[Rfam]
Rfam assigns this 73-nucleotide RNA from Dimorphilus gyrociliatus to the family "mir-10 microRNA precursor family". The match comes from Rfam's covariance-model search (48 bits). The source organism's lineage runs through Eukaryota, Metazoa, Spiralia, Polychaeta and Dimorphilus. The base pairs follow the family's consensus structure, which was predicted with PFOLD. The family has 36 seed sequences and 3,853 matches in Rfam 15.1.

RNA sequence: GACUAUGUACCCUGUAGAACCGAACUUGUGAAAUAAAUUUAACCACAAGUUAGAUUUUCAGGGUUCAUAGACA
Numbered sequence: 001g002a003c004u005a006u007g008u009a010c011c012c013u014g015u016a017g018a019a020c021c022g023a024a025c026u027u028g029u030g031a032a033a034u035a036a037a038u039u040u041a042a043c044c045a046c047a048a049g050u051u052a053g054a055u056u057u058u059c060a061g062g063g064u065u066c067a068u069a070g071a072c073a
Base pairs, nucleotide, nucleotide: 003070004069005068006067007066010063011062012061016058017057018056019055021053023051024050025049026048027047028046029045030044